The record is a 435-nucleotide part of an RNA from Propioniferax innocua, which matches "Bacterial large subunit ribosomal RNA" in Rfam.
Its family is annotated with structural constituent of ribosome and ribosome in the Gene Ontology.
The base pairs follow the family's consensus structure, which is taken from published work.
RNA sequence: CUCCCCGAAAUGCAUAUAGGUGCAGCGUCGCGUGUUUCUUCCCGGAGGUAGAGCACUGGAUAGUCUAGGGGGCCCACAAGCUUACCGAAAUUAACCAAACUCCGAAUACCGGUAAGUGAAACGCGGCAGUGAGACUGUGAGGGAUAAGCUUCAUAGUCGAGAGGGAAACAGCCCAGAUCAUCAGCUAAGGUCCCUAAGCGAUAACUAAGUGGAAAAGGAUGUGGAGUUGCGUAGACAACCAGGAGGUUGGCUUGGAAGCAGCCAUCCUUGAAAGAGUGCGUAAUAGCUCACUGGUCAAGUGAUUCUGCGCCGACAAUUUAGCGGGGCUCAAGUUAUCCACCGAAGCUAUGGCAUCCGUAAGGAUGGGUAGGGGAGCGUCGUGUGUACGAUGAAGCGGCGGGGUGACCCAGCCGUGGAGAGCGCACGAGUGAGAAU
Numbered sequence: 001c002u003c004c005c006c007g008a009a010a011u012g013c014a015u016a017u018a019g020g021u022g023c024a025g026c027g028u029c030g031c032g033u034g035u036u037u038c039u040u041c042c043c044g045g046a047g048g049u050a051g052a053g054c055a056c057u058g059g060a061u062a063g064u065c066u067a068g069g070g071g072g073c074c075c076a077c078a079a080g081c082u083u084a085c086c087g088a089a090a091u092u093a094a095c096c097a098a099a100c101u102c103c104g105a106a107u108a109c110c111g112g113u114a115a116g117u118g119a120a121a122c123g124c125g126g127c128a129g130u131g132a133g134a135c136u137g138u139g140a141g142g143g144a145u146a147a148g149c150u151u152c153a154u155a156g157u158c159g160a161g162a163g164g165g166a167a168a169c170a171g172c173c174c175a176g177a178u179c180a181u182c183a184g185c186u187a188a189g190g191u192c193c194c195u196a197a198g199c200g201a202u203a204a205c206u207a208a209g210u211g212g213a214a215a216a217g218g219a220u221g222u223g224g225a226g227u228u229g230c231g232u233a234g235a236c237a238a239c240c241a242g243g244a245g246g247u248u249g250g251c252u253u254g255g256a257a258g259c260a261g262c263c264a265u266c267c268u269u270g271a272a273a274g275a276g277u278g279c280g281u282a283a284u285a286g287c288u289c290a291c292u293g294g295u296c297a298a299g300u301g302a303u304u305c306u307g308c309g310c311c312g313a314c315a316a317u318u319u320a321g322c323g324g325g326g327c328u329c330a331a332g333u334u335a336u337c338c339a340c341c342g343a344a345g346c347u348a349u350g351g352c353a354u355c356c357g358u359a360a361g362g363a364u365g366g367g368u369a370g371g372g373g374a375g376c377g378u379c380g381u382g383u384g385u386a387c388g389a390u391g392a393a394g395c396g397g398c399g400g401g402g403u404g405a406c407c408c409a410g411c412c413g414u415g416g417a418g419a420g421c422g423c424a425c426g427a428g429u430g431a432g433a434a435u
Stems, first nucleotide, its partner, number of pairs: 001375006011024005026129001027127007036120001038116003042112004051103001052101002057097003061093004068086002070083004133158010163174003178351004183347003189341003198338001200337006217311002221308010238295005244268003249263003269273001274289001278287002352365005376430001378427008387418001394414005399408003